[Rfam]
RNA sequence: UGGAAAUGAUGAAAAUGUAAUCGACCUGAUGUGAUGAAAAUCACAAUGAAAGUUUCUCAAGAUAGUCAAGUACUGAUCCAG
Numbered sequence: 001u002g003g004a005a006a007u008g009a010u011g012a013a014a015a016u017g018u019a020a021u022c023g024a025c026c027u028g029a030u031g032u033g034a035u036g037a038a039a040a041u042c043a044c045a046a047u048g049a050a051a052g053u054u055u056c057u058c059a060a061g062a063u064a065g066u067c068a069a070g071u072a073c074u075g076a077u078c079c080a081g
Base pairs, nucleotide, nucleotide: 001080002079003078004077

Shown here is an 81-nucleotide sequence from Pelodiscus sinensis, a member of the family "Small nucleolar RNA SNORD20". Rfam classes the family as a C/D-box small nucleolar RNA. U20 is a C/D box small nucleolar RNA that is encoded in intron 11 of the nucleolin gene in human, mouse and rat. A reference for the family is Nicoloso et al. (1994), "U20, a novel small nucleolar RNA, is encoded in an intron of the nucleolin gene in mammals", Mol Cell Biol. Its family is annotated with nucleolus and RNA processing in the Gene Ontology.